[Rfam]
RNA sequence: CUUGCGGAGUGUCAUACAGACUGUGGUAGCGAGCAAGUGGCGAAGCAGGACACGUAGAAGCAAGAA
Numbered sequence: 001c002u003u004g005c006g007g008a009g010u011g012u013c014a015u016a017c018a019g020a021c022u023g024u025g026g027u028a029g030c031g032a033g034c035a036a037g038u039g040g041c042g043a044a045g046c047a048g049g050a051c052a053c054g055u056a057g058a059a060g061c062a063a064g065a066a
Stems, first nucleotide, its partner, number of pairs: 001064005009053005021048003029041002033038001